This 165-nucleotide sequence from Alicyclobacillus tolerans belongs to the Rfam family "M-box riboswitch aptamer (ykoK leader)". M-box riboswitch, also know as ykoK leader is described as a metaloregulatory RNA that sense divalent metals and function as a genetic control element of genes related to divalent metal transport in bacteria. It was first reported upstream of the B.subtilis ykoK gene and genes with related functions in other bacteria. The match comes from Rfam's covariance-model search (155 bits). Lineage of the source: Bacteria > Bacillota > Caryophanales > Alicyclobacillaceae > Alicyclobacillus. Its family is annotated with regulation of gene expression and response to magnesium ion in the Gene Ontology.
RNA sequence: UGAAGUCCUCGUUAGGCGAGGCUUCUAUACGAAAAGAUGCCACUGCCCGGAAACGUGGAAACACGCCAAUGGGUUGAACAGGUACUGCCGGCUUAAGGCUUUACUUAAUGUGGCUGGGGGAAUCCCUAAGUCGUAUAGUGCCAAAGCUCAACCAGGGGGAUAAUG
Numbered sequence: 001u002g003a004a005g006u007c008c009u010c011g012u013u014a015g016g017c018g019a020g021g022c023u024u025c026u027a028u029a030c031g032a033a034a035a036g037a038u039g040c041c042a043c044u045g046c047c048c049g050g051a052a053a054c055g056u057g058g059a060a061a062c063a064c065g066c067c068a069a070u071g072g073g074u075u076g077a078a079c080a081g082g083u084a085c086u087g088c089c090g091g092c093u094u095a096a097g098g099c100u101u102u103a104c105u106u107a108a109u110g111u112g113g114c115u116g117g118g119g120g121a122a123u124c125c126c127u128a129a130g131u132c133g134u135a136u137a138g139u140g141c142c143a144a145a146g147c148u149c150a151a152c153c154a155g156g157g158g159g160a161u162a163a164u165g
Stems, first nucleotide, its partner, number of pairs: 005161006011152002013096001015148003020142003025138008039114005045074005054065004081105004087099003116126003